[Rfam]
RNA sequence: AUUGGUAUUGGGAAUGAGGUCUCCCAAAGCAGCAUGCCUGCUUAAACCGCUUAUUAGGCUGAUGACUUCUGCAUCUUU
Numbered sequence: 001a002u003u004g005g006u007a008u009u010g011g012g013a014a015u016g017a018g019g020u021c022u023c024c025c026a027a028a029g030c031a032g033c034a035u036g037c038c039u040g041c042u043u044a045a046a047c048c049g050c051u052u053a054u055u056a057g058g059c060u061g062a063u064g065a066c067u068u069c070u071g072c073a074u075c076u077u078u
Base pairs, nucleotide, nucleotide: 010025011024012023013022016069017068018067019066020065021064049059050058051057
Dot-bracket structure: .........[[[[..((((((]]]].......................(((.....)))....)))))).........

A member of the RNA family "Fluoride riboswitch aptamer (crcB RNA motif)" from Eubacterium ruminantium, 78 nucleotides long. Rfam links the family to the GO terms response to fluoride and positive regulation of gene expression. Taxonomically the source falls in Eubacterium (Bacteria, Bacillati, Bacillota, Eubacteriales).